[Rfam]
Source information:
This 213-nucleotide sequence from Hemibagrus wyckioides belongs to the Rfam family "Small nucleolar RNA U3". Rfam's curators write: Small nucleolar RNAs (snoRNAs) are involved in the processing and modification of rRNA in the nucleolus. A reference for the family is Zwieb (1997), "The uRNA database", Nucleic Acids Res. The source organism's lineage runs through Eukaryota, Craniata, Neopterygii, Osteoglossocephalai and Hemibagrus. Clan: U3 clan.
RNA sequence: AAGACUAUACUUUCAGGGAUCAUUUCUAUAGUGACUGACUAGGAAAUGUGAUGUGAAAGUGUCACGUCUCUCUAAUCACGAUGACGAGGUCUGAUGUGUUCUUCUGAGCGUGAAUCGGGUUCAAGUUAAUAUUUUUUAUUUCAUCUUGAACCAUUGAUGAACGUUCUUUAUUCCAUCUGAAAUAAAAGAGGAAGAGCACAUGAUCAGAGUGAU
Numbered sequence: 001a002a003g004a005c006u007a008u009a010c011u012u013u014c015a016g017g018g019a020u021c022a023u024u025u026c027u028a029u030a031g032u033g034a035c036u037g038a039c040u041a042g043g044a045a046a047u048g049u050g051a052u053g054u055g056a057a058a059g060u061g062u063c064a065c066g067u068c069u070c071u072c073u074a075a076u077c078a079c080g081a082u083g084a085c086g087a088g089g090u091c092u093g094a095u096g097u098g099u100u101c102u103u104c105u106g107a108g109c110g111u112g113a114a115u116c117g118g119g120u121u122c123a124a125g126u127u128a129a130u131a132u133u134u135u136u137u138a139u140u141u142c143a144u145c146u147u148g149a150a151c152c153a154u155u156g157a158u159g160a161a162c163g164u165u166c167u168u169u170a171u172u173c174c175a176u177c178u179g180a181a182a183u184a185a186a187a188g189a190g191g192a193a194g195a196g197c198a199c200a201u202g203a204u205c206a207g208a209g210u211g212a213u
Stems, first nucleotide, its partner, number of pairs: 002040002005037001008033004015027004048065003053062002075213005094201012108164003118152004124146002127143001128141002130138002167187002169184004174179001
Dot-bracket structure: .((.(..((((...((((.....))))..))))...).)).......(((..((......))))).........(((((..............((((((((((((..(((.......((((..((.(((((.....)).)).).))..)))).........)))..((((((.(....).)))).))..)))))))))))).......)))))